[Rfam]
RNA sequence: UAAUUGUAUUAGGAACGUUAUUAGCGUACCAACCGAGCACAAAAGCCACGGUGGUUUAGAAUACGGACAGUUUAGUCAAAAAUAAAUGAUUCC
Numbered sequence: 001u002a003a004u005u006g007u008a009u010u011a012g013g014a015a016c017g018u019u020a021u022u023a024g025c026g027u028a029c030c031a032a033c034c035g036a037g038c039a040c041a042a043a044a045g046c047c048a049c050g051g052u053g054g055u056u057u058a059g060a061a062u063a064c065g066g067a068c069a070g071u072u073u074a075g076u077c078a079a080a081a082a083u084a085a086a087u088g089a090u091u092c093c
Base pairs, nucleotide, nucleotide: 006064007063008062009061010060015027016026017025018024019023028055029054030053033051034050035049037046038045042087066077067076068075